[Rfam]
RNA sequence: UGUUAGAAAUUUCAUCCAUUUCUACUAGUAAAAAUUGGUCCAUGUACGUCAGAAUGAGGUGCAUGUGACAUUCCAGGUGUAAUUGUCUGGUUAUUCUGUCAGCUACACUAUUUUUUAACGGUAGAAAUGGAUGAAAUUUUAGCCA
Numbered sequence: 001u002g003u004u005a006g007a008a009a010u011u012u013c014a015u016c017c018a019u020u021u022c023u024a025c026u027a028g029u030a031a032a033a034a035u036u037g038g039u040c041c042a043u044g045u046a047c048g049u050c051a052g053a054a055u056g057a058g059g060u061g062c063a064u065g066u067g068a069c070a071u072u073c074c075a076g077g078u079g080u081a082a083u084u085g086u087c088u089g090g091u092u093a094u095u096c097u098g099u100c101a102g103c104u105a106c107a108c109u110a111u112u113u114u115u116u117a118a119c120g121g122u123a124g125a126a127a128u129g130g131a132u133g134a135a136a137u138u139u140u141a142g143c144c145a
Base pairs, nucleotide, nucleotide: 002144004142006140007139008138009137010136011135012134013133014132015131016130018128019127020126021125022124023123024122025121026120029117030116031115032114033113